c-di-AMP riboswitch aptamer (ydaO/yuaA leader): a 196-nucleotide RNA from Paenibacillus montanisoli. The pairing is the family consensus, mapped onto this sequence. A search with the family's covariance model found it, with a score of 71 bits. NCBI's taxonomy places the organism under Bacteria, Bacillati, Bacillota, Paenibacillaceae, Paenibacillus.
RNA sequence: CUUUUACGCGAGCCGAAACGAAGUAUCGUACGGGGGAUCAUUAGGGAGCGGCAGUAACUGCCCUCCGGCCGGACAUUUUCGAAUGAACGGUAGAUUGCGCACUUGGCGCUGGGGUGAAUCGCUUUGGUUAAGCGUAGGGUUGAACUCCUCAAUCCGAAUCCGACAACUAACCUCGUAGGCCGCAUGCGACAUAGGA
Numbered sequence: 001c002u003u004u005u006a007c008g009c010g011a012g013c014c015g016a017a018a019c020g021a022a023g024u025a026u027c028g029u030a031c032g033g034g035g036g037a038u039c040a041u042u043a044g045g046g047a048g049c050g051g052c053a054g055u056a057a058c059u060g061c062c063c064u065c066c067g068g069c070c071g072g073a074c075a076u077u078u079u080c081g082a083a084u085g086a087a088c089g090g091u092a093g094a095u096u097g098c099g100c101a102c103u104u105g106g107c108g109c110u111g112g113g114g115u116g117a118a119u120c121g122c123u124u125u126g127g128u129u130a131a132g133c134g135u136a137g138g139g140u141u142g143a144a145c146u147c148c149u150c151a152a153u154c155c156g157a158a159u160c161c162g163a164c165a166a167c168u169a170a171c172c173u174c175g176u177a178g179g180c181c182g183c184a185u186g187c188g189a190c191a192u193a194g195g196a
Base pairs, nucleotide, nucleotide: 012180013179014178018029019028020027030176031175032174033173034172035171039111040110112161113160114159120134121133122132123131137155138154139153140152